[Rfam]
RNA: mir-3473 microRNA precursor family
RNA sequence: ACCGCUGAGCCAUCUCUCCAGCCCCAAAUGUACUUUUUAAAAAUUAAAAUAGCCAGACAUCAGGGCUGGAGAGAUGGCUCAGUGGU
Numbered sequence: 001a002c003c004g005c006u007g008a009g010c011c012a013u014c015u016c017u018c019c020a021g022c023c024c025c026a027a028a029u030g031u032a033c034u035u036u037u038u039a040a041a042a043a044u045u046a047a048a049a050u051a052g053c054c055a056g057a058c059a060u061c062a063g064g065g066c067u068g069g070a071g072a073g074a075u076g077g078c079u080c081a082g083u084g085g086u
Stems, first nucleotide, its partner, number of pairs: 002085023